This 95-nucleotide RNA sequence from Gossypium hirsutum belongs to the Rfam family "MIR8675 microRNA precursor family". The base pairs follow the family's consensus structure, which was predicted with RNAalifold. Taxonomically the source falls in Gossypium (Eukaryota, Streptophyta, Magnoliopsida, Pentapetalae). Rfam 15.1 lists 111 matches to the family in 18 species.
[Rfam]
RNA sequence: UAUGACACUAUGAGAUUGUGCCACAUCAUCACUUGAAAAGUAGAAAAUUUAUAUAAAUUUCCAAGUGAUGAUGUGGUAUAAUCUCAGAGUAUCAC
Numbered sequence: 001u002a003u004g005a006c007a008c009u010a011u012g013a014g015a016u017u018g019u020g021c022c023a024c025a026u027c028a029u030c031a032c033u034u035g036a037a038a039a040g041u042a043g044a045a046a047a048u049u050u051a052u053a054u055a056a057a058u059u060u061c062c063a064a065g066u067g068a069u070g071a072u073g074u075g076g077u078a079u080a081a082u083c084u085c086a087g088a089g090u091a092u093c094a095c
Base pairs, nucleotide, nucleotide: 003094004093005092007090008089009088012085013084014083015082016081017080018079019078020077021076022075023074024073025072026071027070028069029068030067031066032065033064034063035062037060038059039058041056